[Rfam]
RNA sequence: GGUCACGAGUUCCAGCGUCAAGCCCCGGCUUGCUGGACGGCAUCCCGCCCGCUACGGGUGCCCCGGGUGACGACCGGCCCCGUGCGCGGUGCACGGGGAACCGCGGAUC
Numbered sequence: 001g002g003u004c005a006c007g008a009g010u011u012c013c014a015g016c017g018u019c020a021a022g023c024c025c026c027g028g029c030u031u032g033c034u035g036g037a038c039g040g041c042a043u044c045c046c047g048c049c050c051g052c053u054a055c056g057g058g059u060g061c062c063c064c065g066g067g068u069g070a071c072g073a074c075c076g077g078c079c080c081c082g083u084g085c086g087c088g089g090u091g092c093a094c095g096g097g098g099a100a101c102c103g104c105g106g107a108u109c
Base pairs, nucleotide, nucleotide: 001075002074003073004072009038011037012036013035014034015033016032021030022029039062040061041060044058045057046056078098079097080096081095082094083093084092085091086090
The family of this 109-nucleotide RNA sequence from Streptomyces avermitilis is "SAM (S-adenosyl methionine) riboswitch aptamer". A search with the family's covariance model found it, with a score of 88 bits. Rfam links the family to the GO terms regulation of gene expression and S-adenosylmethionine metabolic process. The base pairs follow the family's consensus structure, which is taken from published work. SAM-IV is a mRNA element that regulates gene expression via direct sensing of S-adenosylmethionine (SAM or AdoMet). SAM-IV riboswitches share conserved nucleotide positions with the previously described SAM-I riboswitches sequence analysis and molecular recognition experiments suggest that SAM-I and SAM-IV riboswitches share similar ligand binding sites, but have different scaffolds. The family has 40 seed sequences and 2,360 matches in Rfam 15.1. NCBI's taxonomy places the organism under Bacteria, Bacillati, Kitasatosporales, Streptomycetaceae, Streptomyces avermitilis.